[Rfam]
RNA: TPP riboswitch aptamer (THI element)
Organism: Anaerosphaera aminiphila
RNA sequence: AAACAGGAAUAGGGGAGCUUUUGCUGAGAUUUAACCCUUAAGCUGAUCCAGAUAAUGCUGGCGUAGUGAAUUCCAAAUACACUUAA
Numbered sequence: 001a002a003a004c005a006g007g008a009a010u011a012g013g014g015g016a017g018c019u020u021u022u023g024c025u026g027a028g029a030u031u032u033a034a035c036c037c038u039u040a041a042g043c044u045g046a047u048c049c050a051g052a053u054a055a056u057g058c059u060g061g062c063g064u065a066g067u068g069a070a071u072u073c074c075a076a077a078u079a080c081a082c083u084u085a086a
Base pairs, nucleotide, nucleotide: 006074007073008072009071010070011038012037013036014035016032017024018023042067043066044065045064048061049060050059051058